[Rfam]
RNA sequence: AUAUUUCCUCGUUAGGUGAGGCUACUGCAUAGACAAAAGCCACUGCCCGGAAACGUCGAAAGACGCCAAUGGGUCAACAGGUAUUACCGGCUUAAGGUUUUACCUAAUGUGGCUGAGAGGAAUCUCUAGCUAUGCAUGAGCCAAAGCUCAACGAGUGGGGGAUAAA
Numbered sequence: 001a002u003a004u005u006u007c008c009u010c011g012u013u014a015g016g017u018g019a020g021g022c023u024a025c026u027g028c029a030u031a032g033a034c035a036a037a038a039g040c041c042a043c044u045g046c047c048c049g050g051a052a053a054c055g056u057c058g059a060a061a062g063a064c065g066c067c068a069a070u071g072g073g074u075c076a077a078c079a080g081g082u083a084u085u086a087c088c089g090g091c092u093u094a095a096g097g098u099u100u101u102a103c104c105u106a107a108u109g110u111g112g113c114u115g116a117g118a119g120g121a122a123u124c125u126c127u128a129g130c131u132a133u134g135c136a137u138g139a140g141c142c143a144a145a146g147c148u149c150a151a152c153g154a155g156u157g158g159g160g161g162a163u164a165a166a
Stems, first nucleotide, its partner, number of pairs: 005162006011152002013095001015148003020142003025138001026136007039113005045074005054065004080104004086098003115126003
RNA: M-box riboswitch aptamer (ykoK leader)